[Rfam]
RNA sequence: AGUGCUGUUGGGGGAUGAAGCUUUGAGUGAUCCAUCGGCAGAGCAUGAUGUUGCCAUGCUGACACUCGAGCUGCUGACAACACGCU
Numbered sequence: 001a002g003u004g005c006u007g008u009u010g011g012g013g014g015a016u017g018a019a020g021c022u023u024u025g026a027g028u029g030a031u032c033c034a035u036c037g038g039c040a041g042a043g044c045a046u047g048a049u050g051u052u053g054c055c056a057u058g059c060u061g062a063c064a065c066u067c068g069a070g071c072u073g074c075u076g077a078c079a080a081c082a083c084g085c086u
Stems, first nucleotide, its partner, number of pairs: 002085003006082004010075002013033004018028001035062005043054003
Source information
Shown here is an 86-nucleotide RNA from Nothoprocta perdicaria, a member of the family "Small nucleolar RNA SNORD71". By type it is an H/ACA-box small nucleolar RNA. Lineage of the source: Eukaryota > Tetrapoda > Archosauria > Tinamiformes > Nothoprocta.